[Rfam]
RNA sequence: CCGACCGAAACAUGUCGAAGCAUGACCUCAGCAGAGAUAGUUCGUGAGGUAGAGCGACCGAUUGGGAGACCCGCCUCCGAGAGGAGUCGGCCUCCCUGUCAAACUCCGAACUUACGAACGUCGUAGAAGCUGGGAGUCCGGUUUGCGGGGUAAGCCUGUGAACCGUAAGGGAGACAACCCAGAGCUGGGUUAAGGACCCAAAAUGUGGACUAAGUGCAAUCGAAGAUAGUCUCGAGCCCUAAACAGCCGGGAGGUGAGCUUAGAAGCAGCAACCCUCUAAGAAAAGCGUAACAGCUUACCGGCCGAGGUUUGAGGCGUCGAAAAUGAUCGGGGCUCAAGUCCACUUCCGAGACCCGGCGGUACUCUUACAGAGUAAUCCAGUAGGUCGGCACUCUGAGCGGGUGGAAGCACGGGUGAGAACUCGUCGUGGACCGCUCAGUGACGAAAAU
Number, nucleotide and partner (000 for none) at each position: 001c389002c388003g387004a386005c385006c384007g000008a000009a000010a000011c024012a023013u022014g021015u020016c000017g000018a000019a000020g015021c014022a013023u012024g011025a000026c136027c134028u133029c132030a131031g130032c129033a000034g000035a000036g122037a121038u120039a000040g119041u118042u117043c116044g115045u114046g113047a112048g000049g000050u000051a000052g107053a105054g104055c000056g000057a000058c000059c000060g100061a099062u098063u000064g096065g095066g094067a093068g092069a000070c000071c000072c000073g088074c000075c086076u085077c084078c083079g000080a000081g000082a000083g078084g077085a076086g075087u000088c073089g000090g000091c000092c068093u067094c066095c065096c064097u000098g062099u061100c060101a000102a000103a000104c054105u053106c000107c052108g000109a000110a000111c000112u047113u046114a045115c044116g043117a042118a041119c040120g038121u037122c036123g000124u000125a000126g000127a000128a000129g032130c031131u030132g029133g028134g027135a000136g026137u000138c000139c000140g164141g163142u162143u161144u160145g159146c158147g157148g156149g000150g000151u000152a000153a000154g000155c000156c148157u147158g146159u145160g144161a143162a142163c141164c140165g000166u000167a000168a000169g180170g179171g178172a000173g000174a000175c000176a000177a000178c171179c170180c169181a000182g000183a000184g358185c357186u356187g355188g354189g353190u352191u000192a000193a000194g348195g347196a346197c000198c000199c000200a000201a000202a000203a345204u000205g344206u343207g342208g341209a340210c339211u000212a000213a000214g000215u000216g000217c000218a000219a000220u000221c000222g000223a000224a000225g319226a318227u317228a000229g316230u315231c314232u313233c312234g311235a310236g309237c308238c307239c000240u000241a000242a000243a000244c000245a000246g303247c302248c301249g300250g299251g000252a276253g275254g274255u000256g000257a000258g270259c269260u000261u000262a000263g000264a000265a000266g000267c000268a000269g259270c258271a000272a000273c000274c254275c253276u252277c281278u000279a000280a000281g277282a297283a000284a000285a000286g295287c294288g000289u000290a000291a000292c000293a000294g287295c286296u000297u282298a000299c250300c249301g248302g247303c246304c000305g000306a000307g238308g237309u236310u235311u234312g233313a232314g231315g230316c229317g227318u226319c225320g000321a000322a000323a000324a000325u000326g000327a000328u000329c000330g000331g000332g000333g000334c000335u000336c000337a000338a000339g210340u209341c208342c207343a206344c205345u203346u196347c195348c194349g000350a000351g000352a190353c189354c188355c187356g186357g185358c184359g379360g378361u375362a374363c373364u372365c371366u000367u000368a000369c000370a000371g365372a364373g363374u362375a361376a000377u000378c360379c359380a000381g000382u000383a000384g006385g005386u004387c003388g002389g001390c444391a000392c441393u000394c439395u438396g437397a436398g435399c434400g433401g432402g000403u000404g000405g000406a000407a000408g428409c427410a425411c424412g423413g422414g421415u420416g000417a000418g000419a000420a415421c414422u413423c412424g411425u410426c000427g409428u408429g000430g000431a000432c401433c400434g399435c398436u397437c396438a395439g394440u000441g392442a000443c000444g390445a000446a000447a000448a000449u000